A member of the RNA family "Small nucleolar RNA snR80" from Hyaloscypha hepaticicola, 167 nucleotides long. The family is grouped with related families in Rfam's "SNORA28 clan". On this family, see Schattner et al., Nucleic Acids Res 2004: "Genome-wide searching for pseudouridylation guide snoRNAs: analysis of the Saccharomyces cerevisiae genome". It scores 41 bits against the family's covariance model. The base pairs follow the family's consensus structure, which was predicted with WAR.
RNA sequence: CACACUCCCCAAACACUCUGGCCCUUACCCCCUUUCCCUCGUGGAUCGGUUCAACCUGUGGUAUAGGCCUAUUUUUGGAGGGAGAAGACUGAUCUCGUCCGAUUACUCACCGCGAUAUCUUGUCCUUCGGGCGUAGAUAUGGUGGUCCAUAUCUUUCUGGUCAACAU
Number, nucleotide and partner (000 for none) at each position: 001c000002a000003c000004a000005c000006u000007c082008c081009c080010c000011a000012a000013a000014c000015a000016c000017u000018c000019u000020g069021g068022c067023c066024c000025u000026u063027a062028c061029c060030c000031c049032c000033u000034u000035u000036c000037c000038c000039u000040c000041g000042u000043g000044g000045a000046u000047c000048g000049g031050u000051u000052c000053a000054a000055c000056c000057u000058g000059u000060g029061g028062u027063a026064u000065a000066g023067g022068c021069c020070u000071a000072u000073u000074u000075u000076u000077g000078g000079a000080g009081g008082g007083a000084g000085a000086a000087g000088a000089c000090u000091g000092a000093u000094c000095u000096c000097g162098u000099c160100c159101g000102a000103u000104u000105a000106c000107u000108c000109a000110c145111c144112g143113c142114g000115a140116u139117a138118u137119c136120u135121u000122g000123u000124c000125c000126u000127u000128c000129g000130g000131g000132c000133g000134u000135a120136g119137a118138u117139a116140u115141g000142g113143u112144g111145g110146u000147c000148c000149a000150u000151a000152u000153c000154u000155u000156u000157c000158u000159g100160g099161u000162c097163a000164a000165c000166a000167u000